[Rfam]
RNA sequence: AGGACUAUACUUUCAGGGAUCAUUUCUAUAGUUCGUUACUAGAGAAGUUUCUCUGAAUGUGUAGAGUACCCGAAACCACGAGGAGGAGGCGAAGUGUUCUCUCCUGAGCGUGAAGCUGGCUUUUGGUGCUGUCGUUACAGUUGCCGAUUGCCAUUGAUGAUCGUUCUUUCUCUCUCUUUGGGAGAGUAAGAGGGAGAGAGCACAGUCUGAGUGGU
Numbered sequence: 001a002g003g004a005c006u007a008u009a010c011u012u013u014c015a016g017g018g019a020u021c022a023u024u025u026c027u028a029u030a031g032u033u034c035g036u037u038a039c040u041a042g043a044g045a046a047g048u049u050u051c052u053c054u055g056a057a058u059g060u061g062u063a064g065a066g067u068a069c070c071c072g073a074a075a076c077c078a079c080g081a082g083g084a085g086g087a088g089g090c091g092a093a094g095u096g097u098u099c100u101c102u103c104c105u106g107a108g109c110g111u112g113a114a115g116c117u118g119g120c121u122u123u124u125g126g127u128g129c130u131g132u133c134g135u136u137a138c139a140g141u142u143g144c145c146g147a148u149u150g151c152c153a154u155u156g157a158u159g160a161u162c163g164u165u166c167u168u169u170c171u172c173u174c175u176c177u178u179u180g181g182g183a184g185a186g187u188a189a190g191a192g193g194g195a196g197a198g199a200g201c202a203c204a205g206u207c208u209g210a211g212u213g214g215u
Stems, first nucleotide, its partner, number of pairs: 002040002006035001009032003015027004049065002054061001075215005094203012108164003118152003124146004128141005167189002170186007
Rfam assigns this 215-nucleotide RNA sequence from Felis catus to the family "Small nucleolar RNA U3". Rfam's curators put it in the seed alignment. Its family is annotated with RNA processing and nucleolus in the Gene Ontology. The family has 87 seed sequences and 19,072 matches in Rfam 15.1. From the family's description: Small nucleolar RNAs (snoRNAs) are involved in the processing and modification of rRNA in the nucleolus. There are two main classes of snoRNAs: the box C/D class, and the box H/ACA class. U3 snoRNA is a member of the box C/D class. A reference for the family is Zwieb (1997), "The uRNA database", Nucleic Acids Res.